[Rfam]
RNA sequence: GUCGCUCACCUUUACGACGGAUCGUCCGGCACGUACCUGCCGGUGAAGGAGAAGAAG
Numbered sequence: 001g002u003c004g005c006u007c008a009c010c011u012u013u014a015c016g017a018c019g020g021a022u023c024g025u026c027c028g029g030c031a032c033g034u035a036c037c038u039g040c041c042g043g044u045g046a047a048g049g050a051g052a053a054g055a056a057g
Stems, first nucleotide, its partner, number of pairs: 009049006026043006
The family of this 57-nucleotide sequence from Nocardioides mangrovicus is "msiK RNA". The base pairs follow the family's consensus structure, which is taken from published work. The match comes from Rfam's covariance-model search (60 bits). The family's RNA type in Rfam is cis-regulatory element.